The record is a 268-nucleotide sequence from Virgibacillus sp. MSP4-1, which matches "BsrG" in Rfam. Rfam links the family to the GO terms toxin activity and autolysis. Pairs were carried over by alignment from the consensus structure, which was predicted with WAR. It scores 81 bits against the family's covariance model. bsrE, bsrG and bsrH pair through intermolecular interactions with antisense sRNAs. They form type I toxin/antitoxin system that includes an mRNA encoding for a short, toxic peptide (bsrE, bsrG and bsrH) and an antitoxin that is comprised of an antisense RNA. bsrG encodes a 39-amino-acid toxin, and the 180 nucleotide antisense sRNA called SR4 acts as the antitoxin (they overlap by 123 nucleotides). SR4 interaction with the 3'UTR of bsrG RNA promotes bsrG degradation and inhibits its translation. BsrG interferes with cell envelope biosynthesis, causes membrane invaginations and delocalisation of the cell wall synthesis and initiates autolysis. bsrE RNA encodes 30 amino-acid toxin peptide. Its antitoxin gene, SR5 overlaps by 112 nucleotides at the 3' end of bsrE. SR5 also overlaps bsrG from nucleotide 163 to 52 (Rfam overlap check). The antitoxin SR5 promotes bsrE degradation but unlike SR4 it does not directly inhibits toxin mRNA translation.
[Rfam]
RNA sequence: UACAAUAGACAAGCUUCACAUGAGGGGACGGCACACCUUUAUCCCUGAAAAGGGGCUCCCGGGGAGGGGGUGAUGCCUAUGGAUAUGAGCGAUGCAAUGACCUUAAUGAUUGCCUUUGGUACGUUAAUUGCCAUCAUCAUGUCCGACAAUAAAAAAUAACCCCUCAUGUGCUUGAGCAGGGCCGUGAGAGGUUAUUCCCUUCAUAGUGCCUCCCCCUCGUGAUGGGGUUGGUCUAUUGUACGACCGUUCCAUGUUACCAGCAUGGGAC
Numbered sequence: 001u002a003c004a005a006u007a008g009a010c011a012a013g014c015u016u017c018a019c020a021u022g023a024g025g026g027g028a029c030g031g032c033a034c035a036c037c038u039u040u041a042u043c044c045c046u047g048a049a050a051a052g053g054g055g056c057u058c059c060c061g062g063g064g065a066g067g068g069g070g071u072g073a074u075g076c077c078u079a080u081g082g083a084u085a086u087g088a089g090c091g092a093u094g095c096a097a098u099g100a101c102c103u104u105a106a107u108g109a110u111u112g113c114c115u116u117u118g119g120u121a122c123g124u125u126a127a128u129u130g131c132c133a134u135c136a137u138c139a140u141g142u143c144c145g146a147c148a149a150u151a152a153a154a155a156a157u158a159a160c161c162c163c164u165c166a167u168g169u170g171c172u173u174g175a176g177c178a179g180g181g182c183c184g185u186g187a188g189a190g191g192u193u194a195u196u197c198c199c200u201u202c203a204u205a206g207u208g209c210c211u212c213c214c215c216c217u218c219g220u221g222a223u224g225g226g227g228u229u230g231g232u233c234u235a236u237u238g239u240a241c242g243a244c245c246g247u248u249c250c251a252u253g254u255u256a257c258c259a260g261c262a263u264g265g266g267a268c
Stems, first nucleotide, its partner, number of pairs: 001240005007234003011211001013209002016206001017170008026161002034072002037070003081144007095108002119135001180199002212227004246268010